[Rfam]
RNA sequence: GUAGAGGAGAUGGCGCAGGGGACACGGGCUACAACGCAGGGCUUUCUGGGGCCCUCUAAUGUGUCCUCUUCUCCCUCCUCCCAG
Numbered sequence: 001g002u003a004g005a006g007g008a009g010a011u012g013g014c015g016c017a018g019g020g021g022a023c024a025c026g027g028g029c030u031a032c033a034a035c036g037c038a039g040g041g042c043u044u045u046c047u048g049g050g051g052c053c054c055u056c057u058a059a060u061g062u063g064u065c066c067u068c069u070u071c072u073c074c075c076u077c078c079u080c081c082c083a084g
Stems, first nucleotide, its partner, number of pairs: 004080006012074002015071001017069010036057001038055007
RNA: mir-877 microRNA precursor family